Annotation: MIR828 microRNA precursor family: a 133-nucleotide sequence from Salvia splendens. On this family, see Rajagopalan et al., Genes Dev 2006: "A diverse and evolutionarily fluid set of microRNAs in Arabidopsis thaliana". NCBI's taxonomy places the organism under Eukaryota, Streptophytina, Euphyllophyta, Lamiaceae, core Calosphace. The family's consensus secondary structure was predicted with RNAalifold. A search with the family's covariance model found it, with a score of 86 bits.

RNA sequence: AUAACAUUUCUUGCUCAAAUGAGUAUUCCAAAAAGAUGCAGAAUGCUACGUACAAUAUUCUUAUGUGUUUUAUAUCAGUUUCCAAGUGCAUCUGCUUCAUUUGUGAGAUGCUCAUUUGGGCAAGUAAUGUUAU
Numbered sequence: 001a002u003a004a005c006a007u008u009u010c011u012u013g014c015u016c017a018a019a020u021g022a023g024u025a026u027u028c029c030a031a032a033a034a035g036a037u038g039c040a041g042a043a044u045g046c047u048a049c050g051u052a053c054a055a056u057a058u059u060c061u062u063a064u065g066u067g068u069u070u071u072a073u074a075u076c077a078g079u080u081u082c083c084a085a086g087u088g089c090a091u092c093u094g095c096u097u098c099a100u101u102u103g104u105g106a107g108a109u110g111c112u113c114a115u116u117u118g119g120g121c122a123a124g125u126a127a128u129g130u131u132a133u
Base pairs, nucleotide, nucleotide: 004130005129006128007127008126010124011123012122013121014120015119016118017117018116019115020114021113022112023111024110025109026108027107029105030104